Shown here is a 128-nucleotide RNA, a member of the family "EFASI RNA". Pairs were carried over by alignment from the consensus structure, which is taken from published work.
[Rfam]
RNA sequence: AAAGAUCGAUACCGAGGGGGCAUGACACCCCGGAGUAUCCCCUGCUCACGCAGGCAGCCUGUACCGCGUACUGGCUGAAACUCCCUAUACCUCAAGAAGCUGCCACUCUGGCGUGAAGGUAUCGUUCU
Numbered sequence: 001a002a003a004g005a006u007c008g009a010u011a012c013c014g015a016g017g018g019g020g021c022a023u024g025a026c027a028c029c030c031c032g033g034a035g036u037a038u039c040c041c042c043u044g045c046u047c048a049c050g051c052a053g054g055c056a057g058c059c060u061g062u063a064c065c066g067c068g069u070a071c072u073g074g075c076u077g078a079a080a081c082u083c084c085c086u087a088u089a090c091c092u093c094a095a096g097a098a099g100c101u102g103c104c105a106c107u108c109u110g111g112c113g114u115g116a117a118g119g120u121a122u123c124g125u126u127c128u
Stems, first nucleotide, its partner, number of pairs: 002128001004126002007124007018031003032084004041054005055077004061071004
It is annotated as a small RNA.